[Rfam]
RNA sequence: UGCUUUAAAAGGCAAAGUUGUCGAGAGACAAUGACGCAAAACCUCCGGUCCAAACUCACCCGGGAUAAAACCUGAUGUGAACGGAUAGCGGGGCUGCAGGC
Dot-bracket structure: ...........((...((((((....))))))...))..(.((.((((((.................................)))..))))).)......
RNA: c-di-GMP-I riboswitch aptamer
Organism: Pseudidiomarina salinarum